A member of the RNA family "Small nucleolar RNA Z43" from Hordeum vulgare, 102 nucleotides long. Taxonomically the source falls in Hordeum vulgare (Eukaryota, Viridiplantae, Poaceae, Hordeinae). By type it is a C/D-box small nucleolar RNA. Pairs were carried over by alignment from the consensus structure, which was predicted with PFOLD. A reference for the family is Chen et al. (2003), "The high diversity of snoRNAs in plants: identification and comparative study of 120 snoRNA genes from Oryza sativa", Nucleic Acids Res. A search with the family's covariance model found it, with a score of 61 bits.
RNA sequence: GGACAGUAAAGAUUGAUGUUUGGCCAGGUUCGUAGUAACUGGCAUUUGUUUGCCUUGCCGACCAUACUGCUAGUGCUAUAUCAUCACCUAUAUUCCGAGUCC
Numbered sequence: 001g002g003a004c005a006g007u008a009a010a011g012a013u014u015g016a017u018g019u020u021u022g023g024c025c026a027g028g029u030u031c032g033u034a035g036u037a038a039c040u041g042g043c044a045u046u047u048g049u050u051u052g053c054c055u056u057g058c059c060g061a062c063c064a065u066a067c068u069g070c071u072a073g074u075g076c077u078a079u080a081u082c083a084u085c086a087c088c089u090a091u092a093u094u095c096c097g098a099g100u101c102c
Base pairs, nucleotide, nucleotide: 001102002101003100004099044056

Gene Ontology terms of the family: RNA processing and nucleolus.